[Rfam]
Nucleotides: 098
Stems, first nucleotide, its partner, number of pairs: 001098002004095004049066006
Number, partner (000 for none) and nucleotide at each position: 001098u002097u003000g004095c005094u006093g007092c008000u009000g010000u011000g012000a013000u014000g015000a016000u017000u018000u019000u020000a021000u022000g023000a024000a025000u026000a027000a028000a029000u030000u031000c032000a033000c034000a035000u036000g037000u038000c039000a040000g041000a042000c043000u044000u045000c046000a047000g048000a049066g050065a051064u052063u053062c054061u055000g056000u057000a058000a059000a060000a061054g062053g063052a064051a065050u066049c067000a068000g069000u070000g071000a072000g073000a074000a075000g076000a077000c078000a079000u080000u081000c082000a083000u084000a085000u086000u087000u088000c089000u090000g091000a092007g093006c094005a095004g096000a097002a098001g